Shown here is a 162-nucleotide RNA from Medicago truncatula, a member of the family "MIR2619 microRNA precursor family". Pairs were carried over by alignment from the consensus structure, which was predicted with RNAalifold. NCBI's taxonomy places the organism under Eukaryota, Embryophyta, Euphyllophyta, Magnoliopsida, Medicago. The match comes from Rfam's covariance-model search (118 bits).
[Rfam]
RNA sequence: AAACAGCCCCCUAUGUUUUGAUUCUUUGACAGUUUUGGACCCCGAGUCCAUUGUUGACUCAGUCAACGCUGACGUGGCACCCUAAGUGAGGUGCCACGUGUCAAUUUUUUUUUACCUUGGGGGUCCAAAACUGCCAAAGAAUCAAAACAUAACGGGCUGUUU
Numbered sequence: 001a002a003a004c005a006g007c008c009c010c011c012u013a014u015g016u017u018u019u020g021a022u023u024c025u026u027u028g029a030c031a032g033u034u035u036u037g038g039a040c041c042c043c044g045a046g047u048c049c050a051u052u053g054u055u056g057a058c059u060c061a062g063u064c065a066a067c068g069c070u071g072a073c074g075u076g077g078c079a080c081c082c083u084a085a086g087u088g089a090g091g092u093g094c095c096a097c098g099u100g101u102c103a104a105u106u107u108u109u110u111u112u113u114a115c116c117u118u119g120g121g122g123g124u125c126c127a128a129a130a131c132u133g134c135c136a137a138a139g140a141a142u143c144a145a146a147a148c149a150u151a152a153c154g155g156g157c158u159g160u161u162u
Base pairs, nucleotide, nucleotide: 001162002161004159005158006157007156008155012151013150014149015148016147017146018145019144020143021142022141023140024139025138026137027136028135030133031132032131033130034129035128036127037126038125039124040123041122042121043120045118072099073098075096076095077094078093079092080091081090